[Rfam]
RNA sequence: UCCGGGGUGAUGAGUUGCGCCUGUAGGUGGUGCUGUUCUGCAGUGGCGGAACGGCUCCACUCUGACUCCUGACGACAAGCCGAGUGCACAGGGGCCAUCUGACCGGCA
Numbered sequence: 001u002c003c004g005g006g007g008u009g010a011u012g013a014g015u016u017g018c019g020c021c022u023g024u025a026g027g028u029g030g031u032g033c034u035g036u037u038c039u040g041c042a043g044u045g046g047c048g049g050a051a052c053g054g055c056u057c058c059a060c061u062c063u064g065a066c067u068c069c070u071g072a073c074g075a076c077a078a079g080c081c082g083a084g085u086g087c088a089c090a091g092g093g094g095c096c097a098u099c100u101g102a103c104c105g106g107c108a
Stems, first nucleotide, its partner, number of pairs: 004107001006104002024064003027060004032055003037050005

The family of this 108-nucleotide RNA sequence from Conger conger is "Small nucleolar RNA SNORD67". Gene Ontology terms of the family: RNA processing and nucleolus. The family has 15 seed sequences and 781 matches in Rfam 15.1. Rfam classes the family as a C/D-box small nucleolar RNA. For this family Rfam cites "RNomics: an experimental approach that identifies 201 candidates for novel, small, non-messenger RNAs in mouse" (Huttenhofer et al., EMBO J, 2001). The base pairs follow the family's consensus structure.